Notes: Shown here is a 116-nucleotide sequence from Blastococcus sp. DSM 46786, a member of the family "SAM (S-adenosyl methionine) riboswitch aptamer". Rfam links the family to the GO terms S-adenosylmethionine metabolic process and regulation of gene expression. Lineage of the source: Bacteria > Bacillati > Actinomycetota > Actinomycetes > Blastococcus. About the family: SAM-IV is a mRNA element that regulates gene expression via direct sensing of S-adenosylmethionine (SAM or AdoMet). A reference for the family is Weinberg et al. (2008), "The aptamer core of SAM-IV riboswitches mimics the ligand-binding site of SAM-I riboswitches", RNA. The base pairs follow the family's consensus structure, which is taken from published work.
RNA sequence: GCUCCUGAGAGGCAGCGCGAAGCACCUGGCUGGCUGCCCGGCAACCUCAACUCCGUCUGAGGUGCUCCAGGGGAAGAGCCGGCCGGCCGGCGUCCCGCCACCGGCAAGGACGGAGU
Number, nucleotide and partner (000 for none) at each position: 001g079002c078003u077004c076005c000006u000007g000008a000009g039010a000011g038012g037013c036014a035015g034016c033017g000018c000019g000020a000021a031022g030023c000024a000025c000026c000027u000028g000029g000030c022031u021032g000033g016034c015035u014036g013037c012038c011039c009040g066041g065042c064043a000044a000045c062046c061047u060048c000049a000050a000051c000052u000053c000054c000055g000056u000057c000058u000059g000060a047061g046062g045063u000064g042065c041066u040067c000068c000069a000070g000071g000072g000073g000074a000075a000076g004077a003078g002079c001080c000081g000082g105083c104084c103085g102086g101087c000088c000089g099090g098091c097092g096093u000094c000095c000096c092097g091098c090099c089100a000101c086102c085103g084104g083105c082106a000107a000108g000109g000110a000111c000112g000113g000114a000115g000116u000